[Rfam]
The family of this 94-nucleotide RNA from Salix koriyanagi is "Small nucleolar RNA R32/R81/Z41". Its family is annotated with nucleolus and RNA processing in the Gene Ontology. The organism belongs to Salix, within Eukaryota. The family's RNA type in Rfam is C/D-box small nucleolar RNA. The family's consensus secondary structure was predicted with PFOLD.

Nucleotides: 094
Base pairs, nucleotide, nucleotide: 004091005090006089007088
Number, partner (000 for none) and nucleotide at each position: 001000a002000g003000a004091u005090g006089a007088a008000g009000a010000u011000g012000a013000u014000g015000a016000a017000a018000g019000u020000a021000a022000u023000a024000u025000a026000u027000g028000u029000g030000a031000g032000u033000g034000a035000u036000g037000a038000u039000c040000a041000a042000c043000u044000u045000c046000a047000u048000a049000u050000g051000a052000u053000c054000a055000g056000g057000a058000a059000a060000u061000c062000a063000u064000u065000a066000c067000u068000u069000a070000u071000c072000g073000c074000u075000a076000c077000g078000u079000u080000c081000u082000u083000u084000c085000u086000g087000a088007u089006u090005c091004a092000u093000a094000u